[Rfam]
RNA sequence: CCGCAAGGCUUCCAGCAUGGUGGGGCCUGCCGUGGCCCCAUCCAUUCCUGCAGCGCUUGCCAGAGCAGCCCUGGGGUGGUUUGAGGCCUCUUUCUGUCUCUCAGGGGGAGGCUAUAGAAACCCCAUACACGC
Number, nucleotide and partner (000 for none) at each position: 001c000002c000003g060004c059005a058006a057007g056008g000009c055010u000011u000012c000013c000014a000015g000016c000017a000018u044019g043020g042021u000022g000023g038024g037025g036026c035027c034028u000029g000030c000031c000032g000033u000034g027035g026036c025037c024038c023039c000040a000041u000042c020043c019044a018045u000046u000047c000048c000049u000050g000051c000052a000053g000054c000055g009056c007057u006058u005059g004060c003061c000062a000063g000064a000065g000066c000067a000068g000069c000070c000071c000072u125073g124074g123075g122076g121077u000078g000079g000080u000081u000082u000083g000084a000085g000086g000087c111088c110089u109090c108091u107092u106093u000094c104095u103096g102097u000098c000099u000100c000101u000102c096103a095104g094105g000106g092107g091108g090109a089110g088111g087112c000113u000114a000115u000116a000117g000118a000119a000120a000121c076122c075123c074124c073125a072126u000127a000128c000129a000130c000131g000132c000